[Rfam]
RNA: Archaeal large subunit ribosomal RNA, nucleotides 10 to 565
RNA sequence: CCGGUAUCCCGCCUGGUGGAUGGCUCGGCUUGGGACGCCGAGGAAGGGCGUGGUAAGCUGCGAUAAGCCCGGGCGAGGCGCAGACAGCCGUCGAACCCGGGAUCCCCGAAUGGGACUUCCUGCCCCAUUUGGGGCGACCCCGGUAGGGGUCGGGAACGCGGGGAAUUGAAACAUCUUAGUACCCGCAGGAAAAGAAACCAACAGGGAUGCCGUGAGUAGGGGCGACCGAAAGCGGCAGAGGGCAAACCGAACCCCAUACCGCAAGGUAUGGGGGAUGUGGAGUUGCAGGGCUUCCUACUAUAAGACCUGGGUUGGGAAGCCGAAGUGGCCUGGAACGGCCCGCCAUAGAGGGUGAAAGCCCCGUAGGCGUAACCAACCCAGGUCUUGGGAAGUCCCUGAGUACCGUGCGUUGGAUAUCGCGCGGGAAGCUGGGAGGCAUCGGUCUUCCAACCCUAAAUACGUCCCAAGACCGAUAGCGCACUAGUACCGUGAGGGAAAGCUGAAAAGCACCCCUAGCGGGGGGUGAAAAGAGCCUGAAACCAGGCGGGGACAGUAA
Numbered sequence: 001c002c003g004g005u006a007u008c009c010c011g012c013c014u015g016g017u018g019g020a021u022g023g024c025u026c027g028g029c030u031u032g033g034g035a036c037g038c039c040g041a042g043g044a045a046g047g048g049c050g051u052g053g054u055a056a057g058c059u060g061c062g063a064u065a066a067g068c069c070c071g072g073g074c075g076a077g078g079c080g081c082a083g084a085c086a087g088c089c090g091u092c093g094a095a096c097c098c099g100g101g102a103u104c105c106c107c108g109a110a111u112g113g114g115a116c117u118u119c120c121u122g123c124c125c126c127a128u129u130u131g132g133g134g135c136g137a138c139c140c141c142g143g144u145a146g147g148g149g150u151c152g153g154g155a156a157c158g159c160g161g162g163g164a165a166u167u168g169a170a171a172c173a174u175c176u177u178a179g180u181a182c183c184c185g186c187a188g189g190a191a192a193a194g195a196a197a198c199c200a201a202c203a204g205g206g207a208u209g210c211c212g213u214g215a216g217u218a219g220g221g222g223c224g225a226c227c228g229a230a231a232g233c234g235g236c237a238g239a240g241g242g243c244a245a246a247c248c249g250a251a252c253c254c255c256a257u258a259c260c261g262c263a264a265g266g267u268a269u270g271g272g273g274g275a276u277g278u279g280g281a282g283u284u285g286c287a288g289g290g291c292u293u294c295c296u297a298c299u300a301u302a303a304g305a306c307c308u309g310g311g312u313u314g315g316g317a318a319g320c321c322g323a324a325g326u327g328g329c330c331u332g333g334a335a336c337g338g339c340c341c342g343c344c345a346u347a348g349a350g351g352g353u354g355a356a357a358g359c360c361c362c363g364u365a366g367g368c369g370u371a372a373c374c375a376a377c378c379c380a381g382g383u384c385u386u387g388g389g390a391a392g393u394c395c396c397u398g399a400g401u402a403c404c405g406u407g408c409g410u411u412g413g414a415u416a417u418c419g420c421g422c423g424g425g426a427a428g429c430u431g432g433g434a435g436g437c438a439u440c441g442g443u444c445u446u447c448c449a450a451c452c453c454u455a456a457a458u459a460c461g462u463c464c465c466a467a468g469a470c471c472g473a474u475a476g477c478g479c480a481c482u483a484g485u486a487c488c489g490u491g492a493g494g495g496a497a498a499g500c501u502g503a504a505a506a507g508c509a510c511c512c513c514u515a516g517c518g519g520g521g522g523g524u525g526a527a528a529a530g531a532g533c534c535u536g537a538a539a540c541c542a543g544g545c546g547g548g549g550a551c552a553g554u555a556a
Base pairs, nucleotide, nucleotide: 007549008548009547010546011545012544013543014542015541016540022534023500024499027471028470029468030467031466032465033464034463036461037460046107047106048105049062050061051060068101069100070099071098072097073096077089078088079087112121113120114119137150138149139148140147141146157188158186159185160184161183162182168175169174198205199204209236210235211234212233213232219227220226239454240453241452242451247280248279249278257268258267259266260265291392292391293390294389304384305383306382307381319368320367321366325341327340328339329338330337344348350362351361352360403424404423405422406421407420408419409418431448432447433446434445435444487494488493